[Rfam]
RNA sequence: GUGUGUUCAUGAAAGGCUGUCUUUAAACUCACCAGAAGAGGCAGACUGGAUAUCUUACACUC
Numbered sequence: 001g002u003g004u005g006u007u008c009a010u011g012a013a014a015g016g017c018u019g020u021c022u023u024u025a026a027a028c029u030c031a032c033c034a035g036a037a038g039a040g041g042c043a044g045a046c047u048g049g050a051u052a053u054c055u056u057a058c059a060c061u062c
Stems, first nucleotide, its partner, number of pairs: 001062001003060003014047002017044007029035001
Selenocysteine insertion sequence 1: a 62-nucleotide RNA from Oryzias javanicus. For this family Rfam cites "A novel RNA structural motif in the selenocysteine insertion element of eukaryotic selenoprotein mRNAs" (Walczak et al., RNA, 1996). It is annotated as a cis-regulatory element. Rfam links the family to the GO term selenocysteine incorporation.